[Rfam]
RNA sequence: GCUACGCCCGGACGAACUUCCCAGCUCGGCCGACAUAAACGGGUCGGUGGGAUCUUCGUCCGUUUGUAUC
Numbered sequence: 001g002c003u004a005c006g007c008c009c010g011g012a013c014g015a016a017c018u019u020c021c022c023a024g025c026u027c028g029g030c031c032g033a034c035a036u037a038a039a040c041g042g043g044u045c046g047g048u049g050g051g052a053u054c055u056u057c058g059u060c061c062g063u064u065u066g067u068a069u070c
Stems, first nucleotide, its partner, number of pairs: 003068004009062007019052003024048001027046005